Annotation
glmS glucosamine-6-phosphate activated ribozyme aptamer: a 169-nucleotide RNA sequence from Bacillus salacetis. Taxonomically the source falls in Bacillus (Bacteria, Bacilli, Caryophanales, Bacillaceae).

RNA sequence: AAUAAUUAAAAAGCGCCAGGACUAGACCGCGAACGAAGGAUGGUUUAGUUGACGAGGUGGAGGUUCAUCGAUGAUUCGGCGGAUGCCUCCCGGCUUGAAGCAGAGCCGUCAAUUUCUUUCUCAAAUCACCGAGGCAACUCAGUGGACAAAAGAAAGGAAAUGCAAAAAU
Numbered sequence: 001a002a003u004a005a006u007u008a009a010a011a012a013g014c015g016c017c018a019g020g021a022c023u024a025g026a027c028c029g030c031g032a033a034c035g036a037a038g039g040a041u042g043g044u045u046u047a048g049u050u051g052a053c054g055a056g057g058u059g060g061a062g063g064u065u066c067a068u069c070g071a072u073g074a075u076u077c078g079g080c081g082g083a084u085g086c087c088u089c090c091c092g093g094c095u096u097g098a099a100g101c102a103g104a105g106c107c108g109u110c111a112a113u114u115u116c117u118u119u120c121u122c123a124a125a126u127c128a129c130c131g132a133g134g135c136a137a138c139u140c141a142g143u144g145g146a147c148a149a150a151a152g153a154a155a156g157g158a159a160a161u162g163c164a165a166a167a168a169u
Base pairs, nucleotide, nucleotide: 020050021049022048023047024046025045026044027043028042059090060089061088062087063086068079069078070077071076091108092107093106094105095104096103113159114158115157116156117155118154119153127144128143129142131140132139133138
Pairs were carried over by alignment from the consensus structure, which is taken from published work. Rfam classes the family as a riboswitch. Rfam describes the family as follows. This entry contains a glucosamine-6-phosphate activated ribozyme that is found in the mRNA for GlmS. GlmS is an enzyme that uses fructose-6-phosphate and glutamine to generate glucosamine-6-phosphate. The ribozyme catalyses self cleavage of the glmS mRNA that is thought to regulate GlmS activity.